[Rfam]
RNA sequence: GCAUCAGUGGUCUAGUGGUUAUGAUGCUAGUCUUCCAUGAUUAGGAAUAUCUUCCUCUUCAAGUUAACUGGCGAGGGGGGUUCGAUUCCCUCCUGAUGCA
Numbered sequence: 001g002c003a004u005c006a007g008u009g010g011u012c013u014a015g016u017g018g019u020u021a022u023g024a025u026g027c028u029a030g031u032c033u034u035c036c037a038u039g040a041u042u043a044g045g046a047a048u049a050u051c052u053u054c055c056u057c058u059u060c061a062a063g064u065u066a067a068c069u070g071g072c073g074a075g076g077g078g079g080g081u082u083c084g085a086u087u088c089c090c091u092c093c094u095g096a097u098g099c100a
Stems, first nucleotide, its partner, number of pairs: 001099007010025003027071005076092005
RNA: tRNA